[Rfam]
RNA sequence: GUUGAGAGGAAUGUUGUCUGGCUCGAGGUCAUGGAGUACUGAGAUCAGUGAAAGUUUCCAAUGGAAAUUUACCCUCUAACCCAUCUCGGACCAGGCUUCAUUCCCCCCACC
Numbered sequence: 001g002u003u004g005a006g007a008g009g010a011a012u013g014u015u016g017u018c019u020g021g022c023u024c025g026a027g028g029u030c031a032u033g034g035a036g037u038a039c040u041g042a043g044a045u046c047a048g049u050g051a052a053a054g055u056u057u058c059c060a061a062u063g064g065a066a067a068u069u070u071a072c073c074c075u076c077u078a079a080c081c082c083a084u085c086u087c088g089g090a091c092c093a094g095g096c097u098u099c100a101u102u103c104c105c106c107c108c109a110c111c
Base pairs, nucleotide, nucleotide: 001111003109004108006106008104009103010102011101012100013099016096017095018094019093020092021091024088025087026086
The family of this 111-nucleotide RNA sequence from Cajanus cajan is "mir-166 microRNA precursor family". A reference for the family is Ambros (2001), "microRNAs: tiny regulators with great potential", Cell. Gene Ontology terms of the family: RISC complex and miRNA-mediated post-transcriptional gene silencing. The organism belongs to Cajanus, within Eukaryota. From the family's description: This family represents the plant microRNA (miRNA) precursor mir-166. It scores 82 bits against the family's covariance model.